Description: A member of the RNA family "Mycobacterium sRNA Ms_AS-1" from Mycolicibacterium duvalii, 98 nucleotides long. It scores 102 bits against the family's covariance model. Rfam classes the family as a small RNA. Pairs were carried over by alignment from the consensus structure.
RNA sequence: GACGGGUUCGGAAUGAAAUGGUUGACCACGCCGCCGAACACUGCCAAGGUCCGCUUGCCGUCCUGCACCAUCUGCACGCCGCGGCUGCGGAACUCCUU
Numbered sequence: 001g002a003c004g005g006g007u008u009c010g011g012a013a014u015g016a017a018a019u020g021g022u023u024g025a026c027c028a029c030g031c032c033g034c035c036g037a038a039c040a041c042u043g044c045c046a047a048g049g050u051c052c053g054c055u056u057g058c059c060g061u062c063c064u065g066c067a068c069c070a071u072c073u074g075c076a077c078g079c080c081g082c083g084g085c086u087g088c089g090g091a092a093c094u095c096c097u098u
Base pairs, nucleotide, nucleotide: 006039007038008037009036010035011034014033015032019028020027021026043054044053079090080089081088082087